The record is a 54-nucleotide RNA sequence from Salmonella enterica, which matches "DicF RNA" in Rfam. About the family: DicF RNA is an antisense inhibitor of cell division gene ftsZ. DicF and Hfq are necessary to reduce FtsZ protein levels, leading to cell filamentation under anaerobic conditions. Pairs were carried over by alignment from the consensus structure, which was predicted with PFOLD. Its family is annotated with negative regulation of translation and mRNA binding in the Gene Ontology. NCBI's taxonomy places the organism under Bacteria, Pseudomonadati, Pseudomonadota, Salmonella enterica, Salmonella enterica subsp. enterica. Rfam's curators put it in the seed alignment. For this family Rfam cites "Escherichia coli responds to environmental changes using enolasic degradosomes and stabilized DicF sRNA to alter cellular morphology" (Murashko and Lin-Chao, Proc Natl Acad Sci U S A, 2017).
RNA sequence: UGUGUGUAGUACUUGGCGGCAUCAGUUUUUCUUAGUCCUUUCUGAUGUCCGCCC
Numbered sequence: 001u002g003u004g005u006g007u008a009g010u011a012c013u014u015g016g017c018g019g020c021a022u023c024a025g026u027u028u029u030u031c032u033u034a035g036u037c038c039u040u041u042c043u044g045a046u047g048u049c050c051g052c053c054c
Base pairs, nucleotide, nucleotide: 015053016052017051018050019049021048023044024043025042